Shown here is a 121-nucleotide RNA sequence from Glycine max, a member of the family "MIR1520 microRNA precursor family". Rfam 15.1 lists 1,934 matches to the family in 15 species. Lineage of the source: Eukaryota > Embryophyta > Magnoliopsida > Fabaceae > Glycine subgen. Soja. The match comes from Rfam's covariance-model search (79 bits).
RNA sequence: UUACAAAUGAAUGCUGAUUGUCACAUAUCAUGUUCUAAUUUGACGAUGACAACAACAAUACAUUUUUAUCGUUUAUAGAGUUAAUAUCCAAUCAGGAUGUAACACGUGACUAUCAUUGUUU
Numbered sequence: 001u002u003a004c005a006a007a008u009g010a011a012u013g014c015u016g017a018u019u020g021u022c023a024c025a026u027a028u029c030a031u032g033u034u035c036u037a038a039u040u041u042g043a044c045g046a047u048g049a050c051a052a053c054a055a056c057a058a059u060a061c062a063u064u065u066u067u068a069u070c071g072u073u074u075a076u077a078g079a080g081u082u083a084a085u086a087u088c089c090a091a092u093c094a095g096g097a098u099g100u101a102a103c104a105c106g107u108g109a110c111u112a113u114c115a116u117u118g119u120u121u
Stems, first nucleotide, its partner, number of pairs: 020110004026104001030100002033097004038092003